[Rfam]
RNA sequence: AUUCCGCUUGUCGGCGCUCCCCUGGGGGGCGCGGCCAGAGCGUUGGCGCAUGGCGUCAGGGUUCUGGAAGACGGCGUGAACUAUGCAACAGGGAAUCUUCCCGGUUGCUCUUU
Numbered sequence: 001a002u003u004c005c006g007c008u009u010g011u012c013g014g015c016g017c018u019c020c021c022c023u024g025g026g027g028g029g030c031g032c033g034g035c036c037a038g039a040g041c042g043u044u045g046g047c048g049c050a051u052g053g054c055g056u057c058a059g060g061g062u063u064c065u066g067g068a069a070g071a072c073g074g075c076g077u078g079a080a081c082u083a084u085g086c087a088a089c090a091g092g093g094a095a096u097c098u099u100c101c102c103g104g105u106u107g108c109u110c111u112u113u
Stems, first nucleotide, its partner, number of pairs: 001077002004074002008071002012034001014032005019026002035067007043059007085108005091102003